RNA sequence: GUGGGCGGAAGCUCAUUGUAGAGGUCACAUGCUGAGUGCUCGUCACUCCACCAAUCACCUCGGGGAAGGUCUGAGACAAGAGCCAAUAGUUACCCUCGCAGGGUAUCACCUGAUACGGGUGAGCGAGUGAACAGAAAAUAUGGGUCAAUGUGAGCGUUGAUCAGGAGAAGCUGUGUGGUGCAGUUUCUCAGCGCCACACAGUGGAUGUGACGCUUACUGACUUGGAAUCGCUCGCGGCUGGCAAAUGAGUGCGAUGUAUGAGGUGGGGCACAGCUCCAGAACCCAAUUCAGACUACUCUCCCCCCAC
Numbered sequence: 001g002u003g004g005g006c007g008g009a010a011g012c013u014c015a016u017u018g019u020a021g022a023g024g025u026c027a028c029a030u031g032c033u034g035a036g037u038g039c040u041c042g043u044c045a046c047u048c049c050a051c052c053a054a055u056c057a058c059c060u061c062g063g064g065g066a067a068g069g070u071c072u073g074a075g076a077c078a079a080g081a082g083c084c085a086a087u088a089g090u091u092a093c094c095c096u097c098g099c100a101g102g103g104u105a106u107c108a109c110c111u112g113a114u115a116c117g118g119g120u121g122a123g124c125g126a127g128u129g130a131a132c133a134g135a136a137a138a139u140a141u142g143g144g145u146c147a148a149u150g151u152g153a154g155c156g157u158u159g160a161u162c163a164g165g166a167g168a169a170g171c172u173g174u175g176u177g178g179u180g181c182a183g184u185u186u187c188u189c190a191g192c193g194c195c196a197c198a199c200a201g202u203g204g205a206u207g208u209g210a211c212g213c214u215u216a217c218u219g220a221c222u223u224g225g226a227a228u229c230g231c232u233c234g235c236g237g238c239u240g241g242c243a244a245a246u247g248a249g250u251g252c253g254a255u256g257u258a259u260g261a262g263g264u265g266g267g268g269c270a271c272a273g274c275u276c277c278a279g280a281a282c283c284c285a286a287u288u289c290a291g292a293c294u295a296c297u298c299u300c301c302c303c304c305c306a307c
Stems, first nucleotide, its partner, number of pairs: 001307004007301003012262005021061004034048005071291005081239004091105005106122006123235007144221003264278006
The family of this 307-nucleotide RNA sequence from Perca fluviatilis is "Nuclear RNase P". The match comes from Rfam's covariance-model search (223 bits). The family's RNA type in Rfam is ribozyme.